[Rfam]
The family of this 103-nucleotide RNA sequence from Oryctolagus cuniculus is "Small nucleolar RNA SNORD46". Rfam links the family to the GO terms RNA processing and nucleolus. The match comes from Rfam's covariance-model search (114 bits).

RNA sequence: AACUGGAGUGAUGAAAGAGUAUCCUUAGGCGUGGUGGUGGCCGUCUUGGUCACUUAGUGCCACUUGCCAGUGCAAGGACUUGUCAUAGUUACACUGACUGGUG
Numbered sequence: 001a002a003c004u005g006g007a008g009u010g011a012u013g014a015a016a017g018a019g020u021a022u023c024c025u026u027a028g029g030c031g032u033g034g035u036g037g038u039g040g041c042c043g044u045c046u047u048g049g050u051c052a053c054u055u056a057g058u059g060c061c062a063c064u065u066g067c068c069a070g071u072g073c074a075a076g077g078a079c080u081u082g083u084c085a086u087a088g089u090u091a092c093a094c095u096g097a098c099u100g101g102u103g
Stems, first nucleotide, its partner, number of pairs: 002102005

About the family: U40 is a C/D box small nucleolar RNA, also known as snoZ153 in plants. The human sequence has also been annotated in the sequence databases as U46. U40 is encoded in intron 2 of the ribosomal protein S8 gene in human, and is hypothesised to guide methylation of 2'-O-ribose residues on 28S ribosomal RNA. This family represents vertebrate U40.